Shown here is a 124-nucleotide RNA from Tetragenococcus halophilus, a member of the family "FMN riboswitch aptamer (RFN element)". Pairs were carried over by alignment from the consensus structure, which is taken from published work. The organism belongs to Tetragenococcus halophilus, within Bacteria. It scores 102 bits against the family's covariance model. Rfam's curators write: The RFN element is a highly conserved domain that is found frequently in the 5'-untranslated regions of prokaryotic mRNAs that encode for flavin mononucleotide (FMN) biosynthesis and transport proteins.
RNA sequence: GUUCGUCUUCAGGGGCAGGGUGCAAUUCCCGACCGGUGGUAAAAGUCCACGAACUGCUUGUUACAAGUGGUUGAAUCGGUGCAAAUCCGAUACCGACAGUACAGUCUGGAUAAAGAAGAUAGAG
Number, nucleotide and partner (000 for none) at each position: 001g000002u000003u122004c000005g120006u119007c118008u117009u116010c115011a000012g000013g000014g000015g000016c000017a000018g030019g029020g028021u000022g000023c000024a000025a000026u000027u000028c020029c019030c018031g000032a105033c104034c095035g094036g050037u049038g048039g047040u000041a000042a000043a000044a000045g093046u092047c039048c038049a037050c036051g000052a000053a071054c070055u069056g000057c000058u000059u000060g000061u000062u000063a000064c000065a000066a000067g000068u000069g055070g054071u053072u000073g000074a000075a091076u090077c089078g088079g087080u000081g000082c000083a000084a000085a000086u000087c079088c078089g077090a076091u075092a046093c045094c035095g034096a000097c108098a107099g106100u000101a000102c000103a000104g033105u032106c099107u098108g097109g000110a000111u000112a000113a000114a000115g010116a009117a008118g007119a006120u005121a000122g003123a000124g000